[Rfam]
Rfam assigns this 138-nucleotide sequence from Phrynocephalus forsythii to the family "Small nucleolar RNA SNORA1". Gene Ontology terms of the family: nucleolus and RNA processing. The match comes from Rfam's covariance-model search (81 bits). Rfam 15.1 lists 1,282 matches to the family in 515 species. About the family: ACA1 is a member of the H/ACA class of snoRNA that guide the sites of modification of uridines to pseudouridines.
RNA sequence: AGCCUUGUUAGGUUUAUCAAUGGGGGCACACUGUUACUUUUGUGUCCCAGUUGAUCAGCGAGGCUACAGAAAACAACAGGCUGUGCUUCCAUCAUUGUAAGGCCAAUUACACUGGUGACAUUGAGGCCUGUAAUAAGA
Numbered sequence: 001a002g003c004c005u006u007g008u009u010a011g012g013u014u015u016a017u018c019a020a021u022g023g024g025g026g027c028a029c030a031c032u033g034u035u036a037c038u039u040u041u042g043u044g045u046c047c048c049a050g051u052u053g054a055u056c057a058g059c060g061a062g063g064c065u066a067c068a069g070a071a072a073a074c075a076a077c078a079g080g081c082u083g084u085g086c087u088u089c090c091a092u093c094a095u096u097g098u099a100a101g102g103c104c105a106a107u108u109a110c111a112c113u114g115g116u117g118a119c120a121u122u123g124a125g126g127c128c129u130g131u132a133a134u135a136a137g138a
Stems, first nucleotide, its partner, number of pairs: 002064003006060003023048007076131005090117005
Dot-bracket structure: .(((.(((..............(((((((............))))))).........))).)))...........(((((.........(((((..................))))).........))))).......